Source information
The record is a 97-nucleotide RNA from Gordonia aichiensis, which matches "TPP riboswitch aptamer (THI element)" in Rfam.

RNA sequence: ACAACUGACACGGGGUGCCGACACGAGGUCGGCUGAGAUCACACCCGCAGAACCUGCUCCAGUUAGCACUGGCGAAGGGAUGGUCCGAAAAUGGCUG
Dot-bracket structure: ......(.((((((.((((((.......))))).......)..)))).....(((...((((......))))...)))..)).).............